[Rfam]
The record is a 114-nucleotide sequence from Salmo salar, which matches "Potassium channel RNA editing signal" in Rfam. The literature on the family includes a 2004 paper in Nat Struct Mol Biol by Bhalla et al., "Control of human potassium channel inactivation by editing of a small mRNA hairpin". The family's RNA type in Rfam is cis-regulatory element. Taxonomically the source falls in Salmo (Eukaryota, Craniata, Clupeocephala, Euteleosteomorpha).
RNA sequence: GUGGGGUAUGGCGACAUAUACCCAAAGACUUUAUUGGGCAAGAUUAUUGGGGGUCUGUGCUGCAUAGCUGGAGUGUUGGUGAUAGCCUUGCCCAUCCCUAUCAUCGUCAACAAC
Numbered sequence: 001g002u003g004g005g006g007u008a009u010g011g012c013g014a015c016a017u018a019u020a021c022c023c024a025a026a027g028a029c030u031u032u033a034u035u036g037g038g039c040a041a042g043a044u045u046a047u048u049g050g051g052g053g054u055c056u057g058u059g060c061u062g063c064a065u066a067g068c069u070g071g072a073g074u075g076u077u078g079g080u081g082a083u084a085g086c087c088u089u090g091c092c093c094a095u096c097c098c099u100a101u102c103a104u105c106g107u108c109a110a111c112a113a114c
Base pairs, nucleotide, nucleotide: 001114002113004111008107009106010105011104013102014101016099020095037077038076039075040074049063051061